[Rfam]
RNA sequence: CCAAAUCUCUAUCGUUUCUUACGGUAAAGAAAAACCCGCUGUUCUGGGUCAUGAUGAAGCGGCUUACGCUAAAAACCGUCGUGCUGUCCUGGUAUAUUAAGAGAAUCGCAUGAACAGUAACUUCAGACAUCAUUUGUUG
Number, nucleotide and partner (000 for none) at each position: 001c047002c046003a045004a000005a000006u000007c041008u000009c000010u000011a000012u000013c000014g035015u034016u033017u032018c000019u030020u029021a000022c000023g000024g000025u000026a000027a000028a000029g020030a019031a000032a017033a016034a015035c014036c000037c000038g000039c000040u000041g007042u000043u000044c000045u003046g002047g001048g000049u000050c000051a000052u000053g000054a138055u000056g000057a135058a134059g133060c000061g000062g130063c000064u000065u127066a000067c000068g124069c000070u000071a000072a000073a000074a000075a118076c117077c000078g115079u113080c112081g111082u110083g109084c108085u000086g106087u105088c000089c103090u102091g000092g000093u000094a000095u000096a000097u000098u000099a000100a000101g000102a090103g089104a000105a087106u086107c000108g084109c083110a082111u081112g080113a079114a000115c078116a000117g076118u075119a000120a000121c000122u000123u000124c068125a000126g000127a065128c000129a000130u062131c000132a000133u059134u058135u057136g000137u000138u054139g000